Background: The family of this 104-nucleotide sequence from Poecilia reticulata is "Vault RNA".
RNA sequence: GCGUCGGCGUAGCUCAGUGGUUACAUCAAAACUGAAUGGGUUCAAGUUUCUAGCCAGUGGCCUAACAGCCGCGGGUUCGACCACGGGCGCUGUCCGAUGUUAUU
Numbered sequence: 001g002c003g004u005c006g007g008c009g010u011a012g013c014u015c016a017g018u019g020g021u022u023a024c025a026u027c028a029a030a031a032c033u034g035a036a037u038g039g040g041u042u043c044a045a046g047u048u049u050c051u052a053g054c055c056a057g058u059g060g061c062c063u064a065a066c067a068g069c070c071g072c073g074g075g076u077u078c079g080a081c082c083a084c085g086g087g088c089g090c091u092g093u094c095c096g097a098u099g100u101u102a103u104u
Base pairs, nucleotide, nucleotide: 002099003098004097005096006095007094012088013087014086015085017084018083019082020081026080027079029077
It is annotated as a non-coding RNA gene. For this family Rfam cites "Evolution of Vault RNAs" (Stadler et al., Mol Biol Evol, 2009).